Source information
The record is a 72-nucleotide RNA sequence from Cognatishimia activa, which matches "Singlet oxygen resistance RNA X" in Rfam. Rfam classes the family as a small RNA. Rfam's curators write: SorX (RSs2461)like SorY is a singlet oxygen induced sRNA that counteracts oxidative stress by targeting mRNA for a transporter in Rhodobacter. It also has an impact on resistance against organic hydroperoxides. It targets SD sequence of potA mRNA via an aSD sequence. The aSD sequence and some neighbouring nucleotides are identical to the one of SorY (targets takP mRNA).

RNA sequence: AUCCCGCGCAUAUCCGGGUUAUGGUAUGUACCUCCCUGUUGGACUGGUCCGGACUUGUUCCGGACCUCUUUU
Dot-bracket structure: .......(((((((........)))))))................((((((((.....))))))))......